Rfam assigns this 100-nucleotide sequence from Paenibacillus lemnae to the family "Purine riboswitch aptamer".
A search with the family's covariance model found it, with a score of 69 bits.
Gene Ontology term of the family: purine nucleobase biosynthetic process.

RNA sequence: AACGAUAUAUAAGCUUUUUUUCGUAUAAUCCUGGGAAUUGGCCCGGGAGUCUCUACAAGGUCACCGUAAUGAUCUGGCUACGGAAAGAUUGCAGCAGCAU
Numbered sequence: 001a002a003c004g005a006u007a008u009a010u011a012a013g014c015u016u017u018u019u020u021u022c023g024u025a026u027a028a029u030c031c032u033g034g035g036a037a038u039u040g041g042c043c044c045g046g047g048a049g050u051c052u053c054u055a056c057a058a059g060g061u062c063a064c065c066g067u068a069a070u071g072a073u074c075u076g077g078c079u080a081c082g083g084a085a086a087g088a089u090u091g092c093a094g095c096a097g098c099a100u
Stems, first nucleotide, its partner, number of pairs: 018086008029048007058075006